[Rfam]
RNA sequence: UUGCCUAUGGGAUGAAGCAGUCUCUUACAUCUGAUAACCAUCCUCUUCACUUUGUGUGCUAAAACCUUUUGUUUUUAGUUGGUCAUUAACGGAUGGGACAUUU
Numbered sequence: 001u002u003g004c005c006u007a008u009g010g011g012a013u014g015a016a017g018c019a020g021u022c023u024c025u026u027a028c029a030u031c032u033g034a035u036a037a038c039c040a041u042c043c044u045c046u047u048c049a050c051u052u053u054g055u056g057u058g059c060u061a062a063a064a065c066c067u068u069u070u071g072u073u074u075u076u077a078g079u080u081g082g083u084c085a086u087u088a089a090c091g092g093a094u095g096g097g098a099c100a101u102u103u
Base pairs, nucleotide, nucleotide: 038096039095040094041093042092054083055082058079059078060077061076